A member of the RNA family "A. fumigatus snoRNA Afu_263" from Penicilliopsis zonata, 96 nucleotides long.
The literature on the family includes a 2008 paper in Nucleic Acids Res by Jochl et al., "Small ncRNA transcriptome analysis from Aspergillus fumigatus suggests a novel mechanism for regulation of protein synthesis".
[Rfam]
RNA sequence: UUCUAUGAUGAUCACCAUUACCAUAAGCAUAGUUCAACUGAGAUCUACCAGAUCGCUGAACGACAACCUUCUACCAUCUUUCACCCCUAUCUGAUU
Numbered sequence: 001u002u003c004u005a006u007g008a009u010g011a012u013c014a015c016c017a018u019u020a021c022c023a024u025a026a027g028c029a030u031a032g033u034u035c036a037a038c039u040g041a042g043a044u045c046u047a048c049c050a051g052a053u054c055g056c057u058g059a060a061c062g063a064c065a066a067c068c069u070u071c072u073a074c075c076a077u078c079u080u081u082c083a084c085c086c087c088u089a090u091c092u093g094a095u096u
Base pairs, nucleotide, nucleotide: 006020007019008018009017010016032061033060034059035058036057042054043053044052045051
The family is grouped with related families in Rfam's "SNORD77 clan". Lineage of the source: Eukaryota > Opisthokonta > Ascomycota > Eurotiomycetidae > Penicilliopsis zonata. The family's RNA type in Rfam is C/D-box small nucleolar RNA.